Source information:
A member of the RNA family "mir-3154 microRNA precursor family" from Mus musculus, 79 nucleotides long. Rfam links the family to the GO terms RISC complex and miRNA-mediated post-transcriptional gene silencing. Lineage of the source: Eukaryota > Gnathostomata > Mammalia > Muridae > Mus.
RNA sequence: GGCCCCUCCUUCCCAACCCAGCUCCCGCUCACCCCUGCCACGUCAAAGGAGGCAGAAGGGGAGUCGGGAGCGGAGAGGG
Number, nucleotide and partner (000 for none) at each position: 001g000002g000003c000004c079005c078006c077007u076008c075009c000010u000011u074012c073013c072014c000015a000016a000017c000018c000019c000020a000021g071022c070023u069024c068025c067026c066027g065028c063029u062030c061031a000032c060033c059034c058035c055036u054037g053038c052039c051040a000041c049042g000043u000044c000045a000046a000047a000048g000049g041050a000051g039052g038053c037054a036055g035056a000057a000058g034059g033060g032061g030062a029063g028064u000065c027066g026067g025068g024069a023070g022071c021072g013073g012074a011075g008076a007077g006078g005079g004

The sequence is in the family's curated seed alignment.